[Rfam]
RNA sequence: UUCAGUUCUGAUCGGCUGACGUGGAGUUGCGUCCGACACGGGCGCCUCAUCCACCCCGUGUCGGACCAAAGACCCGCCCGAUGUCCCCCGGGCGGGUC
Numbered sequence: 001u002u003c004a005g006u007u008c009u010g011a012u013c014g015g016c017u018g019a020c021g022u023g024g025a026g027u028u029g030c031g032u033c034c035g036a037c038a039c040g041g042g043c044g045c046c047u048c049a050u051c052c053a054c055c056c057c058g059u060g061u062c063g064g065a066c067c068a069a070a071g072a073c074c075c076g077c078c079c080g081a082u083g084u085c086c087c088c089c090g091g092g093c094g095g096g097u098c
Stems, first nucleotide, its partner, number of pairs: 002019004028069001031066009071098010
RNA: Rhizobiales-2 RNA